[Rfam]
RNA sequence: AGCAUCACCCUAGUAGAAGUACUGACUUGACUCUUACUGCAGUAAGUGCUACUAGUUGGGGUAGUGUUG
Numbered sequence: 001a002g003c004a005u006c007a008c009c010c011u012a013g014u015a016g017a018a019g020u021a022c023u024g025a026c027u028u029g030a031c032u033c034u035u036a037c038u039g040c041a042g043u044a045a046g047u048g049c050u051a052c053u054a055g056u057u058g059g060g061g062u063a064g065u066g067u068u069g
Stems, first nucleotide, its partner, number of pairs: 004065002007062005013056002015053002018050006025043003

Overview:
The family of this 69-nucleotide sequence from Sphaeramia orbicularis is "miR-430 microRNA precursor family". The literature on the family includes a 2005 paper in Science by Giraldez et al., "MicroRNAs regulate brain morphogenesis in zebrafish". Rfam 15.1 lists 24,817 matches to the family in 105 species. NCBI's taxonomy places the organism under Eukaryota, Eumetazoa, Craniata, Gobiaria, Sphaeramia. Pairs were carried over by alignment from the consensus structure, which was predicted with RNAalifold. It scores 49 bits against the family's covariance model.